[Rfam]
RNA sequence: CCGCUCUGGUUUCUCUUCAUCACGUACAAAUCUUUGCCUUUUACUAAAGAUUUACAUGGACUGAACACAGGAGAGCCUGUCUUUAUGUUCUGAGUCCCUGCCUUUAAGGCAGGGC
Number, nucleotide and partner (000 for none) at each position: 001c000002c000003g076004c075005u074006c073007u000008g000009g066010u065011u000012u064013c063014u000015c000016u060017u059018c058019a057020u000021c000022a000023c000024g000025u000026a000027c000028a053029a052030a051031u050032c049033u048034u047035u046036g000037c000038c000039u000040u000041u000042u000043a000044c000045u000046a035047a034048a033049g032050a031051u030052u029053u028054a000055c000056a000057u019058g018059g017060a016061c000062u000063g013064a012065a010066c009067a000068c000069a000070g000071g000072a000073g006074a005075g004076c003077c000078u000079g000080u000081c000082u000083u000084u000085a000086u000087g000088u000089u000090c000091u000092g000093a000094g115095u000096c114097c113098c112099u111100g110101c109102c000103u000104u000105u000106a000107a000108g000109g101110c100111a099112g098113g097114g096115c094
RNA: U5 spliceosomal RNA
Organism: Megalops atlanticus